The family of this 87-nucleotide RNA from Gossypium mustelinum is "MIR7486 microRNA precursor family". The family's consensus secondary structure was predicted with RNAalifold. It scores 86 bits against the family's covariance model. Gene Ontology terms of the family: miRNA-mediated post-transcriptional gene silencing and RISC complex. The source organism's lineage runs through Eukaryota, Spermatophyta, Gunneridae, Pentapetalae and Gossypium. The family has 9 seed sequences and 10,132 matches in Rfam 15.1.
RNA sequence: CACAUCAGCGCGACCUGCUGACGUGGAAGGAAAUCGCGCCCUUGAGGGAGCGAUUUCCUUCCACGUCAGCAGGUCACGCUGAAGUAG
Numbered sequence: 001c002a003c004a005u006c007a008g009c010g011c012g013a014c015c016u017g018c019u020g021a022c023g024u025g026g027a028a029g030g031a032a033a034u035c036g037c038g039c040c041c042u043u044g045a046g047g048g049a050g051c052g053a054u055u056u057c058c059u060u061c062c063a064c065g066u067c068a069g070c071a072g073g074u075c076a077c078g079c080u081g082a083a084g085u086a087g
Stems, first nucleotide, its partner, number of pairs: 002085002005082006012075010023064015040047002